The family of this 46-nucleotide sequence from Lacipirellula limnantheis is "Acido-Lenti-1 RNA".

[Rfam]
RNA sequence: CCGUGGGCUCGCGCCCACGGCUAAGCCCUACCGCCGCUUCGCGGCU
Numbered sequence: 001c002c003g004u005g006g007g008c009u010c011g012c013g014c015c016c017a018c019g020g021c022u023a024a025g026c027c028c029u030a031c032c033g034c035c036g037c038u039u040c041g042c043g044g045c046u
Base pairs, nucleotide, nucleotide: 001020002019003018004017005016006015007014008013033045034044035043036042037041